[Rfam]
RNA sequence: AAUUUCAUAUUUCUCCCACUUUUGGUCCCUCAUUUUACGUGCCAUGUAUGUAGAUUCUGCUUACGUGGUGGAAUGAGGGACCAAAAGUGGAAGAAUCUAAAAUUACAG
Numbered sequence: 001a002a003u004u005u006c007a008u009a010u011u012u013c014u015c016c017c018a019c020u021u022u023u024g025g026u027c028c029c030u031c032a033u034u035u036u037a038c039g040u041g042c043c044a045u046g047u048a049u050g051u052a053g054a055u056u057c058u059g060c061u062u063a064c065g066u067g068g069u070g071g072a073a074u075g076a077g078g079g080a081c082c083a084a085a086a087g088u089g090g091a092a093g094a095a096u097c098u099a100a101a102a103u104u105a106c107a108g
Base pairs, nucleotide, nucleotide: 001104002103003102004101005100007098009096010095011094012093014091015090016089018088019087020086021085022084023083024082025081026080027079028078029077030076031075032074033073034072035071036070041069042068043067044066045065046064047063050060051059052058053057
RNA: MIR5284 microRNA precursor family